A member of the RNA family "SAM (S-adenosyl methionine) riboswitch aptamer" from Phytoactinopolyspora mesophila, 115 nucleotides long. The organism belongs to Phytoactinopolyspora, within Bacteria. The base pairs follow the family's consensus structure, which is taken from published work.
[Rfam]
RNA sequence: GGUCAUGAGUGCCAGCGUCAAGCCCCGGCUUGCUGGCCGGCAACCCUCCAUACCGCGGUGGGGUGCCCCGGGUGAAGACCUGGCCGCCUCGAUCCUGAGGCGUCAAGCGCGGGCC
Numbered sequence: 001g002g003u004c005a006u007g008a009g010u011g012c013c014a015g016c017g018u019c020a021a022g023c024c025c026c027g028g029c030u031u032g033c034u035g036g037c038c039g040g041c042a043a044c045c046c047u048c049c050a051u052a053c054c055g056c057g058g059u060g061g062g063g064u065g066c067c068c069c070g071g072g073u074g075a076a077g078a079c080c081u082g083g084c085c086g087c088c089u090c091g092a093u094c095c096u097g098a099g100g101c102g103u104c105a106a107g108c109g110c111g112g113g114c115c
Stems, first nucleotide, its partner, number of pairs: 001080004009038001011037006021030002039067003044063003048058002083104001085102007